[Rfam]
RNA sequence: AAGCGAUAAGGGCAAACCUGUUAAAAGACAGCGACGCAAAGCCAAGGGUCUAAGGUACUGCUGACAGCAGCACUAUGAUUGCCUGGUUACCGAA
Numbered sequence: 001a002a003g004c005g006a007u008a009a010g011g012g013c014a015a016a017c018c019u020g021u022u023a024a025a026a027g028a029c030a031g032c033g034a035c036g037c038a039a040a041g042c043c044a045a046g047g048g049u050c051u052a053a054g055g056u057a058c059u060g061c062u063g064a065c066a067g068c069a070g071c072a073c074u075a076u077g078a079u080u081g082c083c084u085g086g087u088u089a090c091c092g093a094a
Stems, first nucleotide, its partner, number of pairs: 012037002018031005040088004045084003048079003055073002058070004